DUF3800-V RNA: a 97-nucleotide RNA.
The family's consensus secondary structure is taken from published work.
RNA sequence: UGGAGCUGGUAAUAAUAUACUAUUUAGUGCCUAGAUGCUCCUGGAUGGUACAUCCAGAAUUGAGUCUAGGAACAUCACUACUAGCACUACCGCUCUA
Number, nucleotide and partner (000 for none) at each position: 001u097002g096003g095004a094005g093006c092007u000008g000009g090010u089011a000012a000013u000014a000015a000016u000017a000018u000019a000020c000021u000022a000023u000024u000025u080026a079027g078028u077029g076030c070031c069032u068033a067034g066035a065036u064037g000038c000039u000040c000041c057042u056043g055044g054045a053046u000047g000048g000049u000050a000051c000052a000053u045054c044055c043056a042057g041058a000059a000060u000061u000062g000063a000064g036065u035066c034067u033068a032069g031070g030071a000072a000073c000074a000075u000076c029077a028078c027079u026080a025081c000082u000083a000084g000085c000086a000087c000088u000089a010090c009091c000092g006093c005094u004095c003096u002097a001